[Rfam]
RNA sequence: GAUGCAAAGGCGUUCCGAGUCUGUGUGCCUAAAGCCGUUCGUAGGAUUGGAAGGCAAGGGCGUCAGACCGAUGGGUGAAGCUGGAAACGGCUCCGCCUGCCACCUUCGCAAAGGGGCGCCAGACUUUGGCGG
Numbered sequence: 001g002a003u004g005c006a007a008a009g010g011c012g013u014u015c016c017g018a019g020u021c022u023g024u025g026u027g028c029c030u031a032a033a034g035c036c037g038u039u040c041g042u043a044g045g046a047u048u049g050g051a052a053g054g055c056a057a058g059g060g061c062g063u064c065a066g067a068c069c070g071a072u073g074g075g076u077g078a079a080g081c082u083g084g085a086a087a088c089g090g091c092u093c094c095g096c097c098u099g100c101c102a103c104c105u106u107c108g109c110a111a112a113g114g115g116g117c118g119c120c121a122g123a124c125u126u127u128g129g130c131g132g
Stems, first nucleotide, its partner, number of pairs: 004125001011118006019068005027061003034055003073098005079092005099109002
Description: The family of this 132-nucleotide RNA sequence from Coprothermobacter proteolyticus is "Molybdenum/Tungsten riboswitch aptamer (Moco RNA motif)". It scores 54 bits against the family's covariance model. The family's consensus secondary structure is taken from published work.